[Rfam]
RNA sequence: GGCGAUAAACGGUCAUCGUAAUAAGCCUAUCGGACCCGGGGGCAGUACCCGGCGCCUCCACCAGGAGCCCCUUCGCGAAGGGAUUGCUGAUGGGGGCGAAACAGGAUCGACGAGGGUGUAAAGGGUGUUCUUUCGCUCGGCAUGGUUCCGCCGUCAUCGGGCCAUUCAAUAGUUGCCAACGACAACUAUGCUCCGGUGGCCGUUGCCGCGUAA
Dot-bracket structure: (((((........((((........(((.(((...(((((.......)))))(((((((................................)))))))............)))))).......)))).....)))))((((........))))............................................................
The family of this 213-nucleotide sequence from Phreatobacter aquaticus is "permuted transfer-messenger RNA". Pairs were carried over by alignment from the consensus structure, which is taken from published work. From the family's description: Bacterial tmRNA, also known as 10Sa RNA or SsrA, is named for its dual tRNA and mRNA-like properties. Its role is to liberate the mRNA from a stalled ribosome. Lineage of the source: Bacteria > Pseudomonadati > Alphaproteobacteria > Phreatobacteraceae > Phreatobacter. By type it is a non-coding RNA gene. Gene Ontology term of the family: RNA catabolic process.